Shown here is a 107-nucleotide RNA sequence from Rosa chinensis, a member of the family "Plant small nucleolar RNA R71".

[Rfam]
RNA sequence: AUGCCAUGCUGAGGGCAUUGAGUGAUGAGAGUCUUGAACCUUUCAUAGUACUCUGCAUAGGACUCAUCUUGCCCUUGUUGAAUUCCACUUAUCUUCUUCCUAAGCAU
Numbered sequence: 001a002u003g004c005c006a007u008g009c010u011g012a013g014g015g016c017a018u019u020g021a022g023u024g025a026u027g028a029g030a031g032u033c034u035u036g037a038a039c040c041u042u043u044c045a046u047a048g049u050a051c052u053c054u055g056c057a058u059a060g061g062a063c064u065c066a067u068c069u070u071g072c073c074c075u076u077g078u079u080g081a082a083u084u085c086c087a088c089u090u091a092u093c094u095u096c097u098u099c100c101u102a103a104g105c106a107u
Stems, first nucleotide, its partner, number of pairs: 001107001003105002006101001060074002063071001
Source information:
It scores 42 bits against the family's covariance model. Rfam 15.1 lists 278,378 matches to the family in 216 species. NCBI's taxonomy places the organism under Eukaryota, Streptophytina, rosids, Rosales, Rosa.